[Rfam]
RNA sequence: UUCUUAUCAAGAGAGACUGAGGGAUUGGCCCGAUGAAGUCUCAGCAACCAGCCUGUUUAAGGCCAAGGUGCUAAUUCCAAUAGGUUAUAUCCAUUGCCUAGAAGAUAAGAA
Dot-bracket structure: ((((((((....(((((...(((.[[[[)))......)))))((((.((.(((.......)))...))))))...(]]]](((((..........)))))..)))))))))
Description: Shown here is a 111-nucleotide RNA from Lederbergia citrea, a member of the family "SAM riboswitch aptamer (S box leader)". Taxonomically the source falls in Lederbergia (Bacteria, Bacillati, Bacillota, Bacilli). The family's consensus secondary structure is taken from published work. It scores 99 bits against the family's covariance model.